[Rfam]
RNA sequence: AAGUCGUUAACCGGCUUCUAAGAUACUGGAAGUUGGCUUUUGCCUUUGAGUCACACGCCCAAAAAAUGGCAAAACUUUACAGUUGAACCUCUCAGGGGGGGGAGUUUUAGUUGGUAGGCGCCAGCAGGCUCCACCUGCUGGUAAAUCCAACACUACCCGCACUUCCAUAGCGGGUGUCUUUUGAAGAUUUCUCCUUUUCGUAC
Numbered sequence: 001a002a003g004u005c006g007u008u009a010a011c012c013g014g015c016u017u018c019u020a021a022g023a024u025a026c027u028g029g030a031a032g033u034u035g036g037c038u039u040u041u042g043c044c045u046u047u048g049a050g051u052c053a054c055a056c057g058c059c060c061a062a063a064a065a066a067u068g069g070c071a072a073a074a075c076u077u078u079a080c081a082g083u084u085g086a087a088c089c090u091c092u093c094a095g096g097g098g099g100g101g102g103a104g105u106u107u108u109a110g111u112u113g114g115u116a117g118g119c120g121c122c123a124g125c126a127g128g129c130u131c132c133a134c135c136u137g138c139u140g141g142u143a144a145a146u147c148c149a150a151c152a153c154u155a156c157c158c159g160c161a162c163u164u165c166c167a168u169a170g171c172g173g174g175u176g177u178c179u180u181u182u183g184a185a186g187a188u189u190u191c192u193c194c195u196u197u198u199c200g201u202a203c
Stems, first nucleotide, its partner, number of pairs: 042070003046066002078202003096199005102193003110151005120142009153176001155175005
The record is a 203-nucleotide sequence from Callosobruchus maculatus, which matches "R2 RNA element" in Rfam.
This family represents the 3' UTR region of the R2 retrotransposable element. This family is known to interact with the R2-encoded reverse transcriptase in a reaction known as target primed reverse transcription (TPRT).
NCBI's taxonomy places the organism under Eukaryota, Metazoa, Pancrustacea, Hexapoda, Callosobruchus.
The family's consensus secondary structure is taken from published work.